This 130-nucleotide sequence from Pseudoneobacillus rhizosphaerae belongs to the Rfam family "epsC RNA". Rfam 15.1 lists 450 matches to the family in 334 species. By type it is a cis-regulatory element. Taxonomically the source falls in Pseudoneobacillus (Bacteria, Bacillati, Bacillota, Bacilli).
RNA sequence: CGGCAAUGUCUCCUAAGUCGUUAAAAGCUGGAGGUACUCGGCUGUGCUGUGGGGAAAGAGAUUGUUGAAUUACUCUUUUCCUUAGACGCUUGUCGUCAUUAGUAUAGUGUGAGGAUGGGUUUAAGGCCCA
Numbered sequence: 001c002g003g004c005a006a007u008g009u010c011u012c013c014u015a016a017g018u019c020g021u022u023a024a025a026a027g028c029u030g031g032a033g034g035u036a037c038u039c040g041g042c043u044g045u046g047c048u049g050u051g052g053g054g055a056a057a058g059a060g061a062u063u064g065u066u067g068a069a070u071u072a073c074u075c076u077u078u079u080c081c082u083u084a085g086a087c088g089c090u091u092g093u094c095g096u097c098a099u100u101a102g103u104a105u106a107g108u109g110u111g112a113g114g115a116u117g118g119g120u121u122u123a124a125g126g127c128c129c130a
Base pairs, nucleotide, nucleotide: 001020002019003018004017007036008035009034010033011032012031013030037113038112039111040110041108042107043106044105045104046103047102048101051082052081053080054079055078056077057076058075059074060073085097086096087095088094116130117129118128119127120126